This 57-nucleotide sequence from Marinomonas piezotolerans belongs to the Rfam family "Pseudomonas sRNA P26".
[Rfam]
RNA sequence: UGCUUUGCGAAAAUUCGACAUUUAGUCGGAACGGCUGGUGGUUUUUGCCACCGGCCU
Number, nucleotide and partner (000 for none) at each position: 001u000002g000003c000004u000005u000006u000007g000008c000009g000010a000011a000012a000013a000014u030015u029016c028017g027018a026019c000020a000021u000022u000023u000024a000025g000026u018027c017028g016029g015030a014031a000032c000033g056034g055035c054036u053037g052038g051039u050040g049041g048042u047043u000044u000045u000046u000047g042048c041049c040050a039051c038052c037053g036054g035055c034056c033057u000
The literature on the family includes a 2006 paper in Nucleic Acids Res by Livny et al., "Identification of 17 Pseudomonas aeruginosa sRNAs and prediction of sRNA-encoding genes in 10 diverse pathogens using the bioinformatic tool sRNAPredict2". The match comes from Rfam's covariance-model search (36 bits).